[Rfam]
RNA sequence: CUGCAAAGAUGAGGAUCCUGAACUCUCUCUUUCUGAUGCUUAAGUGGAGAAGCUCUUCACGAGGUUCUGAGUGGC
Numbered sequence: 001c002u003g004c005a006a007a008g009a010u011g012a013g014g015a016u017c018c019u020g021a022a023c024u025c026u027c028u029c030u031u032u033c034u035g036a037u038g039c040u041u042a043a044g045u046g047g048a049g050a051a052g053c054u055c056u057u058c059a060c061g062a063g064g065u066u067c068u069g070a071g072u073g074g075c
Stems, first nucleotide, its partner, number of pairs: 001074004